Shown here is a 232-nucleotide part of an RNA from Avrilella dinanensis, a member of the family "Bacterial large subunit ribosomal RNA". Taxonomically the source falls in Avrilella (Bacteria, Bacteroidota, Flavobacteriales, Flavobacteriaceae). The base pairs follow the family's consensus structure, which is taken from published work.
RNA sequence: GAGUUAACGUUUCCGGCGAGGUUAAUCCGUUCAGCGGAGCAGCCGUAACGAAAGUGAGUCUUAAUAGGGCGCUAUAGUCGGAAGUGUUAGACGCGAAACCGUGUGAUCUACCCAUGGACAGGUUGAAGUUUAGGUAACACUAAAUGGAGGACCGAACCCGUUGACGUUGAAAAGUCUUGGGAUGAUCUGUGGGUAGGGGUGAAAGGCCAAUCAAACUCGGAAAUAGCUCGUA
Numbered sequence: 001g002a003g004u005u006a007a008c009g010u011u012u013c014c015g016g017c018g019a020g021g022u023u024a025a026u027c028c029g030u031u032c033a034g035c036g037g038a039g040c041a042g043c044c045g046u047a048a049c050g051a052a053a054g055u056g057a058g059u060c061u062u063a064a065u066a067g068g069g070c071g072c073u074a075u076a077g078u079c080g081g082a083a084g085u086g087u088u089a090g091a092c093g094c095g096a097a098a099c100c101g102u103g104u105g106a107u108c109u110a111c112c113c114a115u116g117g118a119c120a121g122g123u124u125g126a127a128g129u130u131u132a133g134g135u136a137a138c139a140c141u142a143a144a145u146g147g148a149g150g151a152c153c154g155a156a157c158c159c160g161u162u163g164a165c166g167u168u169g170a171a172a173a174g175u176c177u178u179g180g181g182a183u184g185a186u187c188u189g190u191g192g193g194u195a196g197g198g199g200u201g202a203a204a205g206g207c208c209a210a211u212c213a214a215a216c217u218c219g220g221a222a223a224u225a226g227c228u229c230g231u232a
Base pairs, nucleotide, nucleotide: 005089006088007087008086009085010084011083012082013081014080015079016078017077020044021043022042023041026038027037028036048055049054058070059069060068061067092230093229095227099220100219101218103216104215108196109195110194111193112192113191114190115189116188117187118186119184121153122152123151124150128145129144130143131142132141133140157181158180159179163176164175165174198208199207200206